This 91-nucleotide RNA sequence from Bipolaris maydis belongs to the Rfam family "tRNA". The family's RNA type in Rfam is transfer RNA. A search with the family's covariance model found it, with a score of 45 bits. On this family, see Hou, Trends Biochem Sci 1993: "The tertiary structure of tRNA and the development of the genetic code".
RNA sequence: GGUGCGGUGCCAGAGUGGUUAAUGGGUAUGACUCGAAUUCACUAGAUAUCAUAUGGCUUCGGCCGCAGGAGUUCGAAUCUCCUCCGCAUCG
Numbered sequence: 001g002g003u004g005c006g007g008u009g010c011c012a013g014a015g016u017g018g019u020u021a022a023u024g025g026g027u028a029u030g031a032c033u034c035g036a037a038u039u040c041a042c043u044a045g046a047u048a049u050c051a052u053a054u055g056g057c058u059u060c061g062g063c064c065g066c067a068g069g070a071g072u073u074c075g076a077a078u079c080u081c082c083u084c085c086g087c088a089u090c091g
Stems, first nucleotide, its partner, number of pairs: 001090007010025003027053005067083005